A member of the RNA family "Alphaproteobacteria transfer-messenger RNA" from Caenibius tardaugens, 345 nucleotides long. Rfam describes the family as follows. Bacterial tmRNA, also known as 10Sa RNA or SsrA, is named for its dual tRNA and mRNA-like properties. It scores 231 bits against the family's covariance model.

[Rfam]
RNA sequence: CCCCUUUUCUUUUGCGCCGGGCACACCUAUAUCGCGGUUGUCGGUUUCGGCCGACUAUGGCGAUAAACUGCGGCGUACAAUAGGCGCAGCGGACCCGGGGGCAGUACCCGGCGGCUCCACCACUUCUCUUCGGUAUGCCGGGGGAAAUGACGGGGUCGAACUAGGAUCGACGUGUGUUGAAAAGCGCUGUUUUUGCCCGGGCUGAGUAACCCGUUAAAGGCUCAAAACUCAUAAGUGCCAACGAUAACGAAGCACUUGCUCUCGCAGCGUAAUUCUAGGGGCUAACGCCCUGAAGUUACAAAGUUAGAACGCGGUUGGACCCACCGGUCAACAGAAGCGGAUUCC
Numbered sequence: 001c002c003c004c005u006u007u008u009c010u011u012u013u014g015c016g017c018c019g020g021g022c023a024c025a026c027c028u029a030u031a032u033c034g035c036g037g038u039u040g041u042c043g044g045u046u047u048c049g050g051c052c053g054a055c056u057a058u059g060g061c062g063a064u065a066a067a068c069u070g071c072g073g074c075g076u077a078c079a080a081u082a083g084g085c086g087c088a089g090c091g092g093a094c095c096c097g098g099g100g101g102c103a104g105u106a107c108c109c110g111g112c113g114g115c116u117c118c119a120c121c122a123c124u125u126c127u128c129u130u131c132g133g134u135a136u137g138c139c140g141g142g143g144g145a146a147a148u149g150a151c152g153g154g155g156u157c158g159a160a161c162u163a164g165g166a167u168c169g170a171c172g173u174g175u176g177u178u179g180a181a182a183a184g185c186g187c188u189g190u191u192u193u194u195g196c197c198c199g200g201g202c203u204g205a206g207u208a209a210c211c212c213g214u215u216a217a218a219g220g221c222u223c224a225a226a227a228c229u230c231a232u233a234a235g236u237g238c239c240a241a242c243g244a245u246a247a248c249g250a251a252g253c254a255c256u257u258g259c260u261c262u263c264g265c266a267g268c269g270u271a272a273u274u275c276u277a278g279g280g281g282c283u284a285a286c287g288c289c290c291u292g293a294a295g296u297u298a299c300a301a302a303g304u305u306a307g308a309a310c311g312c313g314g315u316u317g318g319a320c321c322c323a324c325c326g327g328u329c330a331a332c333a334g335a336a337g338c339g340g341a342u343u344c345c
Stems, first nucleotide, its partner, number of pairs: 040055005059197005070190007085176003089173003095111005112158007198213004203224003312326004317343002320340002